This 101-nucleotide RNA sequence from Pyrococcus furiosus belongs to the Rfam family "Pab19 RNA". The sequence is in the family's curated seed alignment. Rfam classes the family as an H/ACA-box small nucleolar RNA. The literature on the family includes a 2008 paper in Nucleic Acids Res by Muller et al., "Combined in silico and experimental identification of the Pyrococcus abyssi H/ACA sRNAs and their target sites in ribosomal RNAs". About the family: By using various computational and experimental approaches in three Pyrococcus genomes seven H/ACA sRNAs and 15 pseudouridine resides on rRNA were identified. The organism belongs to Pyrococcus furiosus, within Archaea.

RNA sequence: GCCCCUGAAGAGGGGGCGAAAACCCAGGGGCCCGACGGCGGCGUCGGGGGGAUUGGGGGCAAAGCCCCCGGAAUGAACCCCGCCCUCCUCCCCUGGGUAUA
Numbered sequence: 001g002c003c004c005c006u007g008a009a010g011a012g013g014g015g016g017c018g019a020a021a022a023c024c025c026a027g028g029g030g031c032c033c034g035a036c037g038g039c040g041g042c043g044u045c046g047g048g049g050g051g052a053u054u055g056g057g058g059g060c061a062a063a064g065c066c067c068c069c070g071g072a073a074u075g076a077a078c079c080c081c082g083c084c085c086u087c088c089u090c091c092c093c094u095g096g097g098u099a100u101a
Base pairs, nucleotide, nucleotide: 001017002016003015004014005013006012022098023097024096025095026094027093028092029091030090045082046081047080048079049078053071054070055069056068057067058066059065060064